[Rfam]
RNA sequence: CUACUCCCACUGUUCCAAAAUAUAAGAACGUUUUUAACACUUGUGUAGUGUUAAAAACGUUCUUAUAUUUUGGGACGGAGGGAGUAC
Number, nucleotide and partner (000 for none) at each position: 001c000002u000003a085004c084005u083006c000007c081008c080009a000010c078011u077012g000013u075014u074015c073016c072017a071018a000019a069020a068021u067022a066023u065024a064025a063026g062027a061028a060029c059030g058031u057032u056033u055034u054035u053036a052037a051038c050039a049040c048041u047042u000043g000044u000045g000046u000047a041048g040049u039050g038051u037052u036053a035054a034055a033056a032057a031058c030059g029060u028061u027062c026063u025064u024065a023066u022067a021068u020069u019070u000071u017072g016073g015074g014075a013076c000077g011078g010079a000080g008081g007082g000083a005084g004085u003086a000087c000
Source information: A member of the RNA family "MIR1120/MIR1122 microRNA precursor family" from Triticum urartu, 87 nucleotides long. A reference for the family is Yao et al. (2007), "Cloning and characterization of microRNAs from wheat (Triticum aestivum L.)", Genome Biol. NCBI's taxonomy places the organism under Eukaryota, Embryophyta, Magnoliopsida, Liliopsida, Triticum. Its family is annotated with miRNA-mediated post-transcriptional gene silencing and RISC complex in the Gene Ontology.